Annotation
mir-30 microRNA precursor family: a 77-nucleotide RNA from Nestor notabilis. About the family: This family consists of the mammalian microRNA (miRNA) precursor mir-30a. A search with the family's covariance model found it, with a score of 73 bits. A reference for the family is Lagos-Quintana et al. (2001), "Identification of novel genes coding for small expressed RNAs", Science.
RNA sequence: CUGGCUACUGUAAACAUCCUUGACUGGAAGCUUGGAGGUGUUAAAGGAGCUUUCAGUCGGAUGUUUACAGCAGCAGG
Numbered sequence: 001c002u003g004g005c006u007a008c009u010g011u012a013a014a015c016a017u018c019c020u021u022g023a024c025u026g027g028a029a030g031c032u033u034g035g036a037g038g039u040g041u042u043a044a045a046g047g048a049g050c051u052u053u054c055a056g057u058c059g060g061a062u063g064u065u066u067a068c069a070g071c072a073g074c075a076g077g
Stems, first nucleotide, its partner, number of pairs: 002076001004074003008070012023057010
Dot-bracket structure: .(.(((.((((((((((((...((((((((((...............)))))))))).)))))))))))).))).).